[Rfam]
RNA sequence: GAGCGCCUGCGGUGUUGGUGAACUUCGAGCUAAUUCGAACCGAACACCAAUUCACAUUGGGAGUUCAAAAUUGAAAUGUCUACAGCAUGCCUCGUAAGCUGAGGAAGCUGGAAACAUUUCUGCGAGCACCCACCUGCUUAGCGCGGGUUCGUGAUGUCUUUGGAGAUAACCGCAUUCGCGGGCUUUCA
Numbered sequence: 001g002a003g004c005g006c007c008u009g010c011g012g013u014g015u016u017g018g019u020g021a022a023c024u025u026c027g028a029g030c031u032a033a034u035u036c037g038a039a040c041c042g043a044a045c046a047c048c049a050a051u052u053c054a055c056a057u058u059g060g061g062a063g064u065u066c067a068a069a070a071u072u073g074a075a076a077u078g079u080c081u082a083c084a085g086c087a088u089g090c091c092u093c094g095u096a097a098g099c100u101g102a103g104g105a106a107g108c109u110g111g112a113a114a115c116a117u118u119u120c121u122g123c124g125a126g127c128a129c130c131c132a133c134c135u136g137c138u139u140a141g142c143g144c145g146g147g148u149u150c151g152u153g154a155u156g157u158c159u160u161u162g163g164a165g166a167u168a169a170c171c172g173c174a175u176u177c178g179c180g181g182g183c184u185u186u187c188a
Base pairs, nucleotide, nucleotide: 002186003185005183006182007181008180009179010178011177012175013174014173015172017171018170019169033155034154035153036151037150038149039148040147041146059131060130061129063127064126065125066124070121073120074119075118076117077116078115079114085108086107090104091103092102093101094100